[Rfam]
RNA sequence: UUUAGAUGAUGAAUACUUACUCUUGGUUCGUGUUUAUGACACUUUGUGAUUAUGUGUAAAUUAAAUUCUGAUAAA
Number, nucleotide and partner (000 for none) at each position: 001u075002u074003u073004a072005g000006a000007u000008g000009a000010u000011g000012a000013a000014u000015a000016c000017u000018u000019a000020c000021u000022c000023u000024u000025g000026g000027u000028u000029c000030g000031u000032g000033u000034u000035u000036a000037u000038g000039a000040c000041a000042c000043u000044u000045u000046g000047u000048g000049a000050u000051u000052a000053u000054g000055u000056g000057u000058a000059a000060a000061u000062u000063a000064a000065a000066u000067u000068c000069u000070g000071a000072u004073a003074a002075a001